RNA: FMN riboswitch aptamer (RFN element)
RNA sequence: GGAAUUCUUCGGGGCGGGGUGUAAUUCCCCACCGGCGGUAUAGUCCGCGAGCGCAAAAGCGUUGAUUUGGUGCAAUUCCAAAACCGACAGUAAAGUCUGGAUGAGAGAAGAAAAAG
Numbered sequence: 001g002g003a004a005u006u007c008u009u010c011g012g013g014g015c016g017g018g019g020u021g022u023a024a025u026u027c028c029c030c031a032c033c034g035g036c037g038g039u040a041u042a043g044u045c046c047g048c049g050a051g052c053g054c055a056a057a058a059g060c061g062u063u064g065a066u067u068u069g070g071u072g073c074a075a076u077u078c079c080a081a082a083a084c085c086g087a088c089a090g091u092a093a094a095g096u097c098u099g100g101a102u103g104a105g106a107g108a109a110g111a112a113a114a115a116g
Base pairs, nucleotide, nucleotide: 005112006111007110008109009108010107017029018028019027031096032095033086034085035048036047037046038045043084044083051062052061053060066082067081068080069079070078088099089098090097